[Rfam]
RNA sequence: GACCGGGCGAGUCGGCUGGCGCCGGCCGCAGGCUUCAAACCUGUCGGGCCAACAUUAAAAUGUUGUGCUGAUCAGUUCGAUUCUGAGCCCGGUC
Numbered sequence: 001g002a003c004c005g006g007g008c009g010a011g012u013c014g015g016c017u018g019g020c021g022c023c024g025g026c027c028g029c030a031g032g033c034u035u036c037a038a039a040c041c042u043g044u045c046g047g048g049c050c051a052a053c054a055u056u057a058a059a060a061u062g063u064u065g066u067g068c069u070g071a072u073c074a075g076u077u078c079g080a081u082u083c084u085g086a087g088c089c090c091g092g093u094c
Stems, first nucleotide, its partner, number of pairs: 001094008011026006027047001028044005050065004072086004